[Rfam]
RNA sequence: GUCUUAUCAAGAAAGGUGGAGGGAAUAGGCCCUAUGAAACCUUGGCAACCUACUCAAAGUGAGAAAGGUGCCACAUCCUUCUUUAAUAAAAUUAUUAGAGAUAGAUAAGUU
Numbered sequence: 001g002u003c004u005u006a007u008c009a010a011g012a013a014a015g016g017u018g019g020a021g022g023g024a025a026u027a028g029g030c031c032c033u034a035u036g037a038a039a040c041c042u043u044g045g046c047a048a049c050c051u052a053c054u055c056a057a058a059g060u061g062a063g064a065a066a067g068g069u070g071c072c073a074c075a076u077c078c079u080u081c082u083u084u085a086a087u088a089a090a091a092u093u094a095u096u097a098g099a100g101a102u103a104g105a106u107a108a109g110u111u
Stems, first nucleotide, its partner, number of pairs: 001111001003109006013043005021032003027079003044072004049068002051065001053063002076103001081100006

Notes: This 111-nucleotide RNA sequence from Aureispira anguillae belongs to the Rfam family "SAM riboswitch aptamer (S box leader)". Gene Ontology term of the family: regulation of gene expression. About the family: The SAM riboswitch is found upstream of a number of genes which code for proteins involved in methionine or cysteine biosynthesis in Gram-positive bacteria.